[Rfam]
RNA: glmS glucosamine-6-phosphate activated ribozyme aptamer
Organism: Ectobacillus ponti
RNA sequence: AGCAUAAAGAAAGCGCCAGAGCUGUCAGAGGACAGCUGACGAGGAGGAGUUUUAUCGAGGGUUCGGCGGAUGACUCCCGGUUGUCAUCACAACCGCAAAUGCUUGCUUAAAACAAAGGGGCAACUCUUUGCACAAAGGCAGGCGUGUGAUGGGGA
Numbered sequence: 001a002g003c004a005u006a007a008a009g010a011a012a013g014c015g016c017c018a019g020a021g022c023u024g025u026c027a028g029a030g031g032a033c034a035g036c037u038g039a040c041g042a043g044g045a046g047g048a049g050u051u052u053u054a055u056c057g058a059g060g061g062u063u064c065g066g067c068g069g070a071u072g073a074c075u076c077c078c079g080g081u082u083g084u085c086a087u088c089a090c091a092a093c094c095g096c097a098a099a100u101g102c103u104u105g106c107u108u109a110a111a112a113c114a115a116a117g118g119g120g121c122a123a124c125u126c127u128u129u130g131c132a133c134a135a136a137g138g139c140a141g142g143c144g145u146g147u148g149a150u151g152g153g154g155a
Stems, first nucleotide, its partner, number of pairs: 020037007046077005055066004078095006099145007113130007